[Rfam]
RNA: DUF805b RNA
RNA sequence: UUUGGGGAUGCCGAAAACCAAAUAGAGUAGGUG
Numbered sequence: 001u002u003u004g005g006g007g008a009u010g011c012c013g014a015a016a017a018c019c020a021a022a023u024a025g026a027g028u029a030g031g032u033g
Base pairs, nucleotide, nucleotide: 003020004019005018010032011031012030